[Rfam]
RNA sequence: AACAAGCAAGGGAAUGAAGUUCUCCCUAAGUAAAAUUACUUGAACCGCUUACUAUAGCUGAUGACUUCUGCGUUUAU
Numbered sequence: 001a002a003c004a005a006g007c008a009a010g011g012g013a014a015u016g017a018a019g020u021u022c023u024c025c026c027u028a029a030g031u032a033a034a035a036u037u038a039c040u041u042g043a044a045c046c047g048c049u050u051a052c053u054a055u056a057g058c059u060g061a062u063g064a065c066u067u068c069u070g071c072g073u074u075u076a077u
Base pairs, nucleotide, nucleotide: 010026011025012024013023016068017067018066019065020064021063047058048057049056
The family of this 77-nucleotide sequence from Oribacterium sp. KHPX15 is "Fluoride riboswitch aptamer (crcB RNA motif)". Pairs were carried over by alignment from the consensus structure, which is taken from published work. Taxonomically the source falls in Oribacterium (Bacteria, Bacillota, Clostridia, Lachnospiraceae). The family has 289 seed sequences and 2,293 matches in Rfam 15.1. Gene Ontology terms of the family: positive regulation of gene expression and response to fluoride.